[Rfam]
RNA sequence: GCGAGAGUAUUGCGUAGGCCUUUGCUUCGAGAGAGAAGCUUCAGUUCGCAGCAAUAUCCUCCGCAAAACUUUCCC
Numbered sequence: 001g002c003g004a005g006a007g008u009a010u011u012g013c014g015u016a017g018g019c020c021u022u023u024g025c026u027u028c029g030a031g032a033g034a035g036a037a038g039c040u041u042c043a044g045u046u047c048g049c050a051g052c053a054a055u056a057u058c059c060u061c062c063g064c065a066a067a068a069c070u071u072u073c074c075c
Stems, first nucleotide, its partner, number of pairs: 003073006010066005016060003022054005028048004
mir-242 microRNA precursor family: a 75-nucleotide sequence from Caenorhabditis elegans. Lineage of the source: Eukaryota > Eumetazoa > Rhabditina > Peloderinae > Caenorhabditis. The family's consensus secondary structure was predicted with RNAalifold. It is one of the family's seed sequences.